RNA sequence: UCUGUACGGAACUUGGCACUGGAAGAAUUCACAGAUUAUAUUUGAAUCGUGAUUCUUUUAAUGCCACACUUCGUGCUGG
Numbered sequence: 001u002c003u004g005u006a007c008g009g010a011a012c013u014u015g016g017c018a019c020u021g022g023a024a025g026a027a028u029u030c031a032c033a034g035a036u037u038a039u040a041u042u043u044g045a046a047u048c049g050u051g052a053u054u055c056u057u058u059u060a061a062u063g064c065c066a067c068a069c070u071u072c073g074u075g076c077u078g079g
Stems, first nucleotide, its partner, number of pairs: 004076007014066005020060003023056001025055003029052004034047001
Dot-bracket structure: ...(((((((...(((((.((((.(((.((((.(............).)))))))).))).)))))...)))))))...
Rfam assigns this 79-nucleotide RNA from Photinus pyralis to the family "mir-263 microRNA precursor family".
Taxonomically the source falls in Photinus (Eukaryota, Dicondylia, Aparaglossata, Lampyridae).
Clan: mir-182 clan.
For this family Rfam cites "Direct sequencing and expression analysis of a large number of miRNAs in Aedes aegypti and a multi-species survey of novel mosquito miRNAs" (Li et al., BMC Genomics, 2009).
Pairs were carried over by alignment from the consensus structure, which was predicted with RNAalifold.